[Rfam]
RNA sequence: UGAUAGCGUCGCAACUGGCGUCAAGAUGGGUGACCAUCGGGGAGCGACACAUCCACAAAGGCCGCACGCCUGGGUCGCGCAG
Numbered sequence: 001u002g003a004u005a006g007c008g009u010c011g012c013a014a015c016u017g018g019c020g021u022c023a024a025g026a027u028g029g030g031u032g033a034c035c036a037u038c039g040g041g042g043a044g045c046g047a048c049a050c051a052u053c054c055a056c057a058a059a060g061g062c063c064g065c066a067c068g069c070c071u072g073g074g075u076c077g078c079g080c081a082g
Stems, first nucleotide, its partner, number of pairs: 006050001008048005015041002017070005026037004060076004
Dot-bracket structure: .....(.(((((..(([[[[[....((((....))))..))..))))).).........((((..]]]]]..))))......